Annotation: Rfam assigns this 111-nucleotide RNA sequence from Yimella sp. cx-51 to the family "TPP riboswitch aptamer (THI element)".
RNA sequence: CAAACACCCCACGGGAGCCCUCGGCAGAGGGCUGAGAUCGAGCUCAUGCCGCUCGGACCGUCCGAACCUGCCCGGGUCAUUCCGGCGAAGGAAGUGAGGAGAUCUCGAUGU
Number, nucleotide and partner (000 for none) at each position: 001c000002a000003a000004a000005c000006a000007c098008c000009c096010c000011a061012c060013g059014g058015g000016a000017g032018c031019c030020c029021u028022c000023g000024g000025c000026a000027g000028a021029g020030g019031g018032c017033u000034g000035a000036g000037a000038u000039c055040g054041a053042g052043c051044u000045c000046a000047u000048g000049c000050c000051g043052c042053u041054c040055g039056g000057a000058c014059c013060g012061u011062c000063c000064g000065a000066a000067c091068c090069u089070g000071c000072c085073c084074g083075g082076g000077u000078c000079a000080u000081u000082c075083c074084g073085g072086c000087g000088a000089a069090g068091g067092a000093a000094g000095u000096g009097a000098g007099g000100a000101g000102a000103u000104c000105u000106c000107g000108a000109u000110g000111u000